Rfam assigns this 126-nucleotide sequence from Oryctolagus cuniculus to the family "Small nucleolar RNA SNORA28". Clan: SNORA28 clan. About the family: ACA28 is a member of the H/ACA class of snoRNA that guide the sites of modification of uridines to pseudouridines. Pairs were carried over by alignment from the consensus structure, which was predicted with RNAfold. The organism belongs to Oryctolagus, within Eukaryota. Gene Ontology terms of the family: nucleolus and RNA processing. On this family, see Huttenhofer et al., EMBO J 2001: "RNomics: an experimental approach that identifies 201 candidates for novel, small, non-messenger RNAs in mouse".

RNA sequence: AAGCUACACUCUAAGGCAGACUGUCAAAACUGUCUGACACAAUUUGAACUUGCCAUAGCAAGGAAGUCUAACCUAUUCCAGUAUUCUUUCUUCUGUGAAACAAACUGUUAUAGAGACUUAAACAGU
Numbered sequence: 001a002a003g004c005u006a007c008a009c010u011c012u013a014a015g016g017c018a019g020a021c022u023g024u025c026a027a028a029a030c031u032g033u034c035u036g037a038c039a040c041a042a043u044u045u046g047a048a049c050u051u052g053c054c055a056u057a058g059c060a061a062g063g064a065a066g067u068c069u070a071a072c073c074u075a076u077u078c079c080a081g082u083a084u085u086c087u088u089u090c091u092u093c094u095g096u097g098a099a100a101c102a103a104a105c106u107g108u109u110a111u112a113g114a115g116a117c118u119u120a121a122a123c124a125g126u
Base pairs, nucleotide, nucleotide: 010047011046012041015038017036018035019034020033021032064119065118066117067116068115069114074112075111076110079107080106081105082104087100088099089098090097
Dot-bracket structure: .........(((..(.(((((..........))))).)..)....))................((((((....(((..((((....((((......))))...))))..))).)))))).......